RNA sequence: CUGGUCUGGCGAAAGGCUCCCGUGUGUCGCCUCGCAGUGUGGGUGCGGCCUCGUACCGGGCAGCGUGACCCUGACCUACAGCAAACGCCCCAGAGCCCAAGGGCCUCCCGGGGCGCGUCUGCAGUAACAGGUGUGAGCAUCCUAGCAGCAGUUUGAUGAUCAUGUAUGAUACUGCACACAGAA
Numbered sequence: 001c002u003g004g005u006c007u008g009g010c011g012a013a014a015g016g017c018u019c020c021c022g023u024g025u026g027u028c029g030c031c032u033c034g035c036a037g038u039g040u041g042g043g044u045g046c047g048g049c050c051u052c053g054u055a056c057c058g059g060g061c062a063g064c065g066u067g068a069c070c071c072u073g074a075c076c077u078a079c080a081g082c083a084a085a086c087g088c089c090c091c092a093g094a095g096c097c098c099a100a101g102g103g104c105c106u107c108c109c110g111g112g113g114c115g116c117g118u119c120u121g122c123a124g125u126a127a128c129a130g131g132u133g134u135g136a137g138c139a140u141c142c143u144a145g146c147a148g149c150a151g152u153u154u155g156a157u158g159a160u161c162a163u164g165u166a167u168g169a170u171a172c173u174g175c176a177c178a179c180a181g182a183a
Stems, first nucleotide, its partner, number of pairs: 003076004008071002016064003019060004024056002026050001028048001029044003088113003093107003118178001120176007128168002134162003138158004144153003
The family of this 183-nucleotide RNA from Sorex araneus is "Small Cajal body specific RNA 16". Pairs were carried over by alignment from the consensus structure, which was predicted with RNAfold. It is annotated as a small Cajal body RNA. About the family: scaRNAs are a specific class of small nuclear RNAs which localise to the Cajal bodies and guide the modification of RNA polymerase II transcribed spliceosomal RNAs U1, U2, U4, U5 and U12. ACA47 belongs to the H/ACA box class of guide RNAs as it has the predicted hairpin-hinge-hairpin-tail structure, the conserved H/ACA-box motifs and is found associated with GAR1. The literature on the family includes a 2002 paper in EMBO J by Darzacq et al., "Cajal body-specific small nuclear RNAs: a novel class of 2'-O-methylation and pseudouridylation guide RNAs". Rfam 15.1 lists 790 matches to the family in 514 species.